Selenocysteine insertion sequence 1: a 64-nucleotide sequence from Tupaia belangeri. It is annotated as a cis-regulatory element. Rfam's curators write: The incorporation of selenocysteine into a protein sequence is directed by an in-frame UGA codon (usually a stop codon) within the coding region of the mRNA. Selenoprotein mRNAs contain a conserved secondary structure in the 3' UTR that is required for the distinction of UGA stop from UGA selenocysteine. The selenocysteine insertion sequence (SECIS) is around 60 nt in length and adopts a hairpin structure which is sufficiently well-defined and conserved to act as a computational screen for selenoprotein genes. It scores 40 bits against the family's covariance model. Taxonomically the source falls in Tupaia belangeri (Eukaryota, Opisthokonta, Vertebrata, Tetrapoda). Pairs were carried over by alignment from the consensus structure, which is taken from published work.

[Rfam]
RNA sequence: GUCACUGCAUGAUCUGCUCUGGCUAAACCCUUCCAGGCCAGCCAGGGCGGGGAUGGUCCGUGGC
Numbered sequence: 001g002u003c004a005c006u007g008c009a010u011g012a013u014c015u016g017c018u019c020u021g022g023c024u025a026a027a028c029c030c031u032u033c034c035a036g037g038c039c040a041g042c043c044a045g046g047g048c049g050g051g052g053a054u055g056g057u058c059c060g061u062g063g064c
Stems, first nucleotide, its partner, number of pairs: 001064005014050010029037003